Annotation:
This 171-nucleotide sequence from Cronobacter sakazakii belongs to the Rfam family "sok antitoxin (CssrC)". The organism belongs to Cronobacter sakazakii, within Bacteria. About the family: Also identified in Shigella as CssrC. By type it is an antitoxin RNA.
RNA sequence: CGGCGCUUGAGGCUUUUUGCCUCCGGCAAUCAGCAAAGUUACCGCUAUGGCGGAUGGCAGAAAGAAGAAAGCCCCGAAGGUCAAUUUUCAUUAACCAACGAGGCUGUCUCCAUACUGAACAUAUGCAGAUUAGCCUCUUACCCGUCGCAAGACAAGGAAAAGAAGCUGAUG
Numbered sequence: 001c002g003g004c005g006c007u008u009g010a011g012g013c014u015u016u017u018u019g020c021c022u023c024c025g026g027c028a029a030u031c032a033g034c035a036a037a038g039u040u041a042c043c044g045c046u047a048u049g050g051c052g053g054a055u056g057g058c059a060g061a062a063a064g065a066a067g068a069a070a071g072c073c074c075c076g077a078a079g080g081u082c083a084a085u086u087u088u089c090a091u092u093a094a095c096c097a098a099c100g101a102g103g104c105u106g107u108c109u110c111c112a113u114a115c116u117g118a119a120c121a122u123a124u125g126c127a128g129a130u131u132a133g134c135c136u137c138u139u140a141c142c143c144g145u146c147g148c149a150a151g152a153c154a155a156g157g158a159a160a161a162g163a164a165g166c167u168g169a170u171g
Stems, first nucleotide, its partner, number of pairs: 002074002005072004013064009026051002076099001080095002083092003100137005106130004111125004142162001145159001